A member of the RNA family "Ascomycota telomerase RNA" from Thelonectria olida, 387 nucleotides of a longer RNA. Clan: Telomerase clan. The family's RNA type in Rfam is non-coding RNA gene.
RNA sequence: AAUCAAACAGAAGGAGCUUGCUUGGUUAGUCUUGGGACUUCCUUGAGAUGUCUUGUGAUACGUCGACUUUUGGUGGAGUCGUGUCCGCGAAAGCUACGGGCUAUGUUGGAGUUGACGAUUCACGACCAGCUUUCUGUCUUGACAAUCACUCGUUGUCUGAAAUACGAUGCGCGGCUGGUGCUUGACGCGGUUCCGGGACCCAUCUCGAGUUGGAGUCAAAGUUUCGUACUUGUCCGGAGCUGGCGACGGCCUAGUCGUGACUUGUGUCGAGGACCUUGAGUGCCACUACAGAAGCUGGGUUGACUUAUUGGAUCUUGGACAGGCCGCAGUGGAUGAGGCAGUCCUGGUUGUCCUCUGCCCAGAAAUGGUGUGGAGGGCAACCCCCCA
Numbered sequence: 001a002a003u004c005a006a007a008c009a010g011a012a013g014g015a016g017c018u019u020g021c022u023u024g025g026u027u028a029g030u031c032u033u034g035g036g037a038c039u040u041c042c043u044u045g046a047g048a049u050g051u052c053u054u055g056u057g058a059u060a061c062g063u064c065g066a067c068u069u070u071u072g073g074u075g076g077a078g079u080c081g082u083g084u085c086c087g088c089g090a091a092a093g094c095u096a097c098g099g100g101c102u103a104u105g106u107u108g109g110a111g112u113u114g115a116c117g118a119u120u121c122a123c124g125a126c127c128a129g130c131u132u133u134c135u136g137u138c139u140u141g142a143c144a145a146u147c148a149c150u151c152g153u154u155g156u157c158u159g160a161a162a163u164a165c166g167a168u169g170c171g172c173g174g175c176u177g178g179u180g181c182u183u184g185a186c187g188c189g190g191u192u193c194c195g196g197g198a199c200c201c202a203u204c205u206c207g208a209g210u211u212g213g214a215g216u217c218a219a220a221g222u223u224u225c226g227u228a229c230u231u232g233u234c235c236g237g238a239g240c241u242g243g244c245g246a247c248g249g250c251c252u253a254g255u256c257g258u259g260a261c262u263u264g265u266g267u268c269g270a271g272g273a274c275c276u277u278g279a280g281u282g283c284c285a286c287u288a289c290a291g292a293a294g295c296u297g298g299g300u301u302g303a304c305u306u307a308u309u310g311g312a313u314c315u316u317g318g319a320c321a322g323g324c325c326g327c328a329g330u331g332g333a334u335g336a337g338g339c340a341g342u343c344c345u346g347g348u349u350g351u352c353c354u355c356u357g358c359c360c361a362g363a364a365a366u367g368g369u370g371u372g373g374a375g376g377g378c379a380a381c382c383c384c385c386c387a
Base pairs, nucleotide, nucleotide: 197217198216199215200213201212202211219231220230221229222228